About this RNA:
Rfam assigns this 114-nucleotide sequence from Schinkia azotoformans to the family "SAM riboswitch aptamer (S box leader)". Pairs were carried over by alignment from the consensus structure, which is taken from published work. NCBI's taxonomy places the organism under Bacteria, Bacillati, Bacilli, Caryophanales, Schinkia azotoformans.
[Rfam]
RNA sequence: UACUUAUCCAGAGUGGUGGAGGGAAAGGCCCUAUGAAACCACGGCAACCCCAUUCUUUUAAUAAGAUGGAAGGUGCCAAUUCCUACUGAUGAAUCGUCAGCAGUAAGAUAAGUG
Numbered sequence: 001u002a003c004u005u006a007u008c009c010a011g012a013g014u015g016g017u018g019g020a021g022g023g024a025a026a027g028g029c030c031c032u033a034u035g036a037a038a039c040c041a042c043g044g045c046a047a048c049c050c051c052a053u054u055c056u057u058u059u060a061a062u063a064a065g066a067u068g069g070a071a072g073g074u075g076c077c078a079a080u081u082c083c084u085a086c087u088g089a090u091g092a093a094u095c096g097u098c099a100g101c102a103g104u105a106a107g108a109u110a111a112g113u114g
Stems, first nucleotide, its partner, number of pairs: 001114008013042005021031003026084003043077004048073002050069004081106001086103003090099002